[Rfam]
RNA sequence: CCGAGCAGCUGGGGCGGUAGCGGUGCCCUGUACCAACAAUCCGCUAUAGUUGGAGUGAUGUUCUGCCCCGGGUUUUUGCCUGUGGGGCUGCCUUUUAUAAGUGGUGAUGACGUCUGGGUCUUACGCAAUGGAACUCUGUGAACCGUGUCAGGUUGGGAACAAAGCAGCACUAAGCAGAAUCUUUCAUGUGCCGUAAGGGCGCCUGGGCCGAGCUAACUGUAAAAGUAACGCCCAUGGUCAGGAUUCAAAGCAGAACGCUCGG
Numbered sequence: 001c002c003g004a005g006c007a008g009c010u011g012g013g014g015c016g017g018u019a020g021c022g023g024u025g026c027c028c029u030g031u032a033c034c035a036a037c038a039a040u041c042c043g044c045u046a047u048a049g050u051u052g053g054a055g056u057g058a059u060g061u062u063c064u065g066c067c068c069c070g071g072g073u074u075u076u077u078g079c080c081u082g083u084g085g086g087g088c089u090g091c092c093u094u095u096u097a098u099a100a101g102u103g104g105u106g107a108u109g110a111c112g113u114c115u116g117g118g119u120c121u122u123a124c125g126c127a128a129u130g131g132a133a134c135u136c137u138g139u140g141a142a143c144c145g146u147g148u149c150a151g152g153u154u155g156g157g158a159a160c161a162a163a164g165c166a167g168c169a170c171u172a173a174g175c176a177g178a179a180u181c182u183u184u185c186a187u188g189u190g191c192c193g194u195a196a197g198g199g200c201g202c203c204u205g206g207g208c209c210g211a212g213c214u215a216a217c218u219g220u221a222a223a224a225g226u227a228a229c230g231c232c233c234a235u236g237g238u239c240a241g242g243a244u245u246c247a248a249a250g251c252a253g254a255a256c257g258c259u260c261g262g
Stems, first nucleotide, its partner, number of pairs: 001262006008056003011029006018022001033053005062254005070246006077240002080237007089227002093224006101217002103214003112208008120197006126188002129186005135178005145170004153162003
Dot-bracket structure: ((((((.(((((((((.(...).))))))...(((((...........)))))))).....(((((...((((((.((.(((((((..((..((((((..(((((......((((((((((((((((.(((((.(((((.....((((....(((....)))....))))...)))))...)))))))...))))))...))))))))...))).)).)))))).))...))))))).))))))))...)))))..))))))

The record is a 262-nucleotide RNA sequence from Eubacterium sp. 14-2, which matches "Bacterial large signal recognition particle RNA" in Rfam. The family's RNA type in Rfam is non-coding RNA gene. NCBI's taxonomy places the organism under Bacteria, Bacillota, Eubacteriales, Eubacteriaceae, Eubacterium. The family is grouped with related families in Rfam's "SRP clan".